[Rfam]
RNA sequence: ACAAUAGUAUAGGAUUUCUCAAGGGUGGUCGGCUCACUCCCCGUUAGAAAGGGGGUGGUGCCGUAUGACAGUUUUCGAAGCGCUUAUGUUUGCUGUAGCUUUUUCUAGCUUAAUUGUUGCAAUGCUGUCAUUUAACCAAAAAAAUAAUCCACCCUUGAGUUAGCAGCUCGGUGGAUUAUUUCCUCUACUAGCUGACCCCUUUGAUGGAGCCUGCUAUUGUUAUACCGUUAGUGUACCCGCACUAACG
Numbered sequence: 001a002c003a004a005u006a007g008u009a010u011a012g013g014a015u016u017u018c019u020c021a022a023g024g025g026u027g028g029u030c031g032g033c034u035c036a037c038u039c040c041c042c043g044u045u046a047g048a049a050a051g052g053g054g055g056u057g058g059u060g061c062c063g064u065a066u067g068a069c070a071g072u073u074u075u076c077g078a079a080g081c082g083c084u085u086a087u088g089u090u091u092g093c094u095g096u097a098g099c100u101u102u103u104u105c106u107a108g109c110u111u112a113a114u115u116g117u118u119g120c121a122a123u124g125c126u127g128u129c130a131u132u133u134a135a136c137c138a139a140a141a142a143a144a145u146a147a148u149c150c151a152c153c154c155u156u157g158a159g160u161u162a163g164c165a166g167c168u169c170g171g172u173g174g175a176u177u178a179u180u181u182c183c184u185c186u187a188c189u190a191g192c193u194g195a196c197c198c199c200u201u202u203g204a205u206g207g208a209g210c211c212u213g214c215u216a217u218u219g220u221u222a223u224a225c226c227g228u229u230a231g232u233g234u235a236c237c238c239g240c241a242c243u244a245a246c247g
Base pairs, nucleotide, nucleotide: 001220002219003218004217005216007214008213009212016195017194018159019158020157021156022155023154024153025152027149028148029147034058035057036056038055039054040053041052042051067129068128069127070126071125072124080094082093103121105119170183171182196209198207199206226247227246228245229244230243231242232241233240234239
A member of the RNA family "BsrG" from Rummeliibacillus stabekisii, 247 nucleotides long. The family's consensus secondary structure was predicted with WAR. By type it is a small RNA. The literature on the family includes a 2015 paper in Mol Microbiol by Jahn et al., "Against the mainstream: the membrane-associated type I toxin BsrG from Bacillus subtilis interferes with cell envelope biosynthesis without increasing membrane permeability". Gene Ontology terms of the family: toxin activity and autolysis.